This 47-nucleotide RNA belongs to the Rfam family "gut-2 RNA". The sequence is in the family's curated seed alignment. It is annotated as a small RNA.

[Rfam]
RNA sequence: CUCCUCCGAUUGAUUGGAAUCGGAGAAGGACCGUUGGGGUCAACUGC
Numbered sequence: 001c002u003c004c005u006c007c008g009a010u011u012g013a014u015u016g017g018a019a020u021c022g023g024a025g026a027a028g029g030a031c032c033g034u035u036g037g038g039g040u041c042a043a044c045u046g047c
Stems, first nucleotide, its partner, number of pairs: 004025008029041004